[Rfam]
RNA sequence: GCGCCCGAGGGUGCACGCUGGCCGGCGAGGUUUCGCCCGCCGGCGUAUUUGCG
Numbered sequence: 001g002c003g004c005c006c007g008a009g010g011g012u013g014c015a016c017g018c019u020g021g022c023c024g025g026c027g028a029g030g031u032u033u034c035g036c037c038c039g040c041c042g043g044c045g046u047a048u049u050u051g052c053g
Stems, first nucleotide, its partner, number of pairs: 016045007025036004